[Rfam]
RNA sequence: UCCGCCGCUCCAGGGGGAAGGUUGAGAACCUUCGAUAAAGGUUCGCGUCGAACGUAAGCGAGACAACGUUGCCGCAGGCAACGGCCCGAAGGGUGGCGAACCGCAGGCGAAGAUAAAGACAGCUCACCCGAAAU
Numbered sequence: 001u002c003c004g005c006c007g008c009u010c011c012a013g014g015g016g017g018a019a020g021g022u023u024g025a026g027a028a029c030c031u032u033c034g035a036u037a038a039a040g041g042u043u044c045g046c047g048u049c050g051a052a053c054g055u056a057a058g059c060g061a062g063a064c065a066a067c068g069u070u071g072c073c074g075c076a077g078g079c080a081a082c083g084g085c086c087c088g089a090a091g092g093g094u095g096g097c098g099a100a101c102c103g104c105a106g107g108c109g110a111a112g113a114u115a116a117a118g119a120c121a122g123c124u125c126a127c128c129c130g131a132a133a134u
Base pairs, nucleotide, nucleotide: 015125016124017123020120023117033095034094036093042090043089044088045087049060050059067083068082069081070080071079072078